[Rfam]
RNA sequence: AUAUCUCUUCAGGGCGGGGCGGAAUUCCCCACCGGUGGUAAAGAUCUUCUGAGCCCACGAGCUGCAGAUGUCCUGCAGUAGAUCUGGUGAGAACCCAGAGCCGACGGUUAGAGUCCGGAUGAAAGAAGAGUGGU
Numbered sequence: 001a002u003a004u005c006u007c008u009u010c011a012g013g014g015c016g017g018g019g020c021g022g023a024a025u026u027c028c029c030c031a032c033c034g035g036u037g038g039u040a041a042a043g044a045u046c047u048u049c050u051g052a053g054c055c056c057a058c059g060a061g062c063u064g065c066a067g068a069u070g071u072c073c074u075g076c077a078g079u080a081g082a083u084c085u086g087g088u089g090a091g092a093a094c095c096c097a098g099a100g101c102c103g104a105c106g107g108u109u110a111g112a113g114u115c116c117g118g119a120u121g122a123a124a125g126a127a128g129a130g131u132g133g134u
Base pairs, nucleotide, nucleotide: 005130006129007128008127009126010125017029018028019027031114032113033103034102035058036057037056038055053101054100061079062078063077083099084098085097086096087095105117106116107115
Shown here is a 134-nucleotide sequence from Dialister sp. CAG:486, a member of the family "FMN riboswitch aptamer (RFN element)". NCBI's taxonomy places the organism under Bacteria, Bacillota, Negativicutes, Veillonellales, Dialister. It scores 112 bits against the family's covariance model. The RFN element is a highly conserved domain that is found frequently in the 5'-untranslated regions of prokaryotic mRNAs that encode for flavin mononucleotide (FMN) biosynthesis and transport proteins.